[Rfam]
Bacterial RNase P class A: a 368-nucleotide RNA sequence from Rubidibacter lacunae. The organism belongs to Rubidibacter lacunae, within Bacteria.

RNA sequence: AGAGUUGGCGAGGCGGUUGCGGGCUCGCUUUUAUGGCGAGUCUGAGGAAAGUCCGGGCUCCUAAGGACCAGAUCGCUGGGUAACGCCCAGUGCGAGCGAUCGCGAGGAAAGUGCCACAGAAACAUACCGCCGCUGGGCUUGCCCGUGCGGUAAGGGUGCAAAGGUGCGGUAAGAGCGCACCAGCAGCAUCGUGAGGUGCUGGCUCGGUAAACCCCGGUUGGGAGCAAGGUCGGAGGAGCAAUGGUUGGUCUUUUCCCAGCUCCGAAGAAGGCGUACCGCUUGAGGCGUGCGGUAACGCGCGUCCCAGAUAGAUAACUGCCCUCGGGCUCGUCCCGAGAACAGAACCCGGCUUAUGUCCGGCUCUCUUU
Dot-bracket structure: ((((((((..((((((((.(((((((((.......)))))))))....[[[.[[[[[((((....[[...((((((((((.....)))))(((((....)))).)((...(((((...........(((((((((((....)))).)))))..)).......((((((.......)))))).((((((((....))))))).)..)))..))))))))).))))...(((......(((...((..(...]])..)).))).............)))......((((((((....))))))))..........)))))))........................]]]]]]]].)..))))))))....